[Rfam]
RNA: mir-308 microRNA precursor family
Organism: Bombyx mori
RNA sequence: CGCGUGGUAUUAUUCUUGUGAAUGUGUUUUAGCUACAAUCACAGGAUAAUACUGCGAG
Number, nucleotide and partner (000 for none) at each position: 001c058002g000003c056004g055005u054006g053007g052008u051009a050010u049011u048012a000013u000014u046015c045016u044017u043018g042019u041020g040021a000022a000023u037024g036025u035026g000027u000028u000029u000030u000031a000032g000033c000034u000035a025036c024037a023038a000039u000040c020041a019042c018043a017044g016045g015046a014047u000048a011049a010050u009051a008052c007053u006054g005055c004056g003057a000058g001